[Rfam]
Shown here is a 559-nucleotide part of an RNA from Candidatus Methanobinarius endosymbioticus, a member of the family "Archaeal large subunit ribosomal RNA". The match comes from Rfam's covariance-model search (2888 bits). The family's consensus secondary structure is taken from published work.

RNA sequence: CUACUUAUACUAUCUGGGGGAUGACUUGGCUUGAGCUGCCUAUGAGGGUCGUGGUAAGCUGCGAUAAGCUUGGGCGAGGAGCACACAUCCUUUGAACCCGAGAUUGCCUAAUGGGACUUCCUAUUCUUCCUUGUGGAGAAUGAUCCGUGUAGGAUCGGGAACCCACUGAACUGAAACAUCUUAGUAGGUGGAGGAAAAGAAAGUAAUAACGAUGUCGUUAGUAACGGCGAGCGAAACUGACAUAGAACAAACUGAAUUCUGUAUAGUAAUAUGCAGAAGAUGUGGUGUUGUAAGAAUUAGCUAACAAUCCUCUUGUAUAAAUCGAAGUUGACUUGGAAUGUCACGCCGUAGAGGGUGAUAGCCCCGUAGACAUAUUAUUUUGAGGUUUGGGCUUUUUUCUUGAGUAGGAUCCGUUGGAUAUCGGGUUCAAAUUUGGGAGGCAUCAACUCCUAAUUCUAAAUACAUCUCAAGACCGAUAGCGUACUAGUACCGUGAGGGAAAGCUGAAAAGAACCCCUAUCGGGGGGUGAAAAGAGCCUGAAACCAGAUAGUGACAGCCC
Numbered sequence: 001c002u003a004c005u006u007a008u009a010c011u012a013u014c015u016g017g018g019g020g021a022u023g024a025c026u027u028g029g030c031u032u033g034a035g036c037u038g039c040c041u042a043u044g045a046g047g048g049u050c051g052u053g054g055u056a057a058g059c060u061g062c063g064a065u066a067a068g069c070u071u072g073g074g075c076g077a078g079g080a081g082c083a084c085a086c087a088u089c090c091u092u093u094g095a096a097c098c099c100g101a102g103a104u105u106g107c108c109u110a111a112u113g114g115g116a117c118u119u120c121c122u123a124u125u126c127u128u129c130c131u132u133g134u135g136g137a138g139a140a141u142g143a144u145c146c147g148u149g150u151a152g153g154a155u156c157g158g159g160a161a162c163c164c165a166c167u168g169a170a171c172u173g174a175a176a177c178a179u180c181u182u183a184g185u186a187g188g189u190g191g192a193g194g195a196a197a198a199g200a201a202a203g204u205a206a207u208a209a210c211g212a213u214g215u216c217g218u219u220a221g222u223a224a225c226g227g228c229g230a231g232c233g234a235a236a237c238u239g240a241c242a243u244a245g246a247a248c249a250a251a252c253u254g255a256a257u258u259c260u261g262u263a264u265a266g267u268a269a270u271a272u273g274c275a276g277a278a279g280a281u282g283u284g285g286u287g288u289u290g291u292a293a294g295a296a297u298u299a300g301c302u303a304a305c306a307a308u309c310c311u312c313u314u315g316u317a318u319a320a321a322u323c324g325a326a327g328u329u330g331a332c333u334u335g336g337a338a339u340g341u342c343a344c345g346c347c348g349u350a351g352a353g354g355g356u357g358a359u360a361g362c363c364c365c366g367u368a369g370a371c372a373u374a375u376u377a378u379u380u381u382g383a384g385g386u387u388u389g390g391g392c393u394u395u396u397u398u399c400u401u402g403a404g405u406a407g408g409a410u411c412c413g414u415u416g417g418a419u420a421u422c423g424g425g426u427u428c429a430a431a432u433u434u435g436g437g438a439g440g441c442a443u444c445a446a447c448u449c450c451u452a453a454u455u456c457u458a459a460a461u462a463c464a465u466c467u468c469a470a471g472a473c474c475g476a477u478a479g480c481g482u483a484c485u486a487g488u489a490c491c492g493u494g495a496g497g498g499a500a501a502g503c504u505g506a507a508a509a510g511a512a513c514c515c516c517u518a519u520c521g522g523g524g525g526g527u528g529a530a531a532a533g534a535g536c537c538u539g540a541a542a543c544c545a546g547a548u549a550g551u552g553a554c555a556g557c558c559c
Stems, first nucleotide, its partner, number of pairs: 008552010023537001025502001028474002030471006037464002046109004050063003069102006078090003113122003143155004162193001163191005173180002203210002214241004225231001244457004252285003262273004296395001306387004322370002327344001329343004347351001353365003407428007435451005490497002